[Rfam]
RNA: Archaeal RNase P
Organism: Sulfolobus sp. SCGC AB-777_L09
RNA sequence: GGGAGCCCAGCAAGGGGGUCACGGGUUACUGAGGAAACUCCAGCCACCCGACCCCCAUGGGAGCCUAAAAGGCUGGGGUAGUACCCCAGGCAACUACACAAAAACAUUCCCAGUAAAGCGGGAAAUGAAGAUGAGUCCAUUGUGACCUAGGUAACUGGGUCACAUAGAUGAGACCCGCUUUACUGGUUGAAAUGGUAGUCCUCCCAGGUGAAAGUAAAGGGAGGAUGAGUAGGGGGAUCCGACUCCCUUGAGAACGCUAAGUCAAAUCCCCCUAAAUACAGAAGCUGGGUUAUUGCUGGGCUCCC
Numbered sequence: 001g002g003g004a005g006c007c008c009a010g011c012a013a014g015g016g017g018g019u020c021a022c023g024g025g026u027u028a029c030u031g032a033g034g035a036a037a038c039u040c041c042a043g044c045c046a047c048c049c050g051a052c053c054c055c056c057a058u059g060g061g062a063g064c065c066u067a068a069a070a071g072g073c074u075g076g077g078g079u080a081g082u083a084c085c086c087c088a089g090g091c092a093a094c095u096a097c098a099c100a101a102a103a104a105c106a107u108u109c110c111c112a113g114u115a116a117a118g119c120g121g122g123a124a125a126u127g128a129a130g131a132u133g134a135g136u137c138c139a140u141u142g143u144g145a146c147c148u149a150g151g152u153a154a155c156u157g158g159g160u161c162a163c164a165u166a167g168a169u170g171a172g173a174c175c176c177g178c179u180u181u182a183c184u185g186g187u188u189g190a191a192a193u194g195g196u197a198g199u200c201c202u203c204c205c206a207g208g209u210g211a212a213a214g215u216a217a218a219g220g221g222a223g224g225a226u227g228a229g230u231a232g233g234g235g236g237a238u239c240c241g242a243c244u245c246c247c248u249u250g251a252g253a254a255c256g257c258u259a260a261g262u263c264a265a266a267u268c269c270c271c272c273u274a275a276a277u278a279c280a281g282a283a284g285c286u287g288g289g290u291u292a293u294u295g296c297u298g299g300g301c302u303c304c305c
Stems, first nucleotide, its partner, number of pairs: 001305003005301005011295002013273006022031003036291003040288005045210004050239002053236003058206005063073004074088005089201002094198004110186011136168002214255002219247005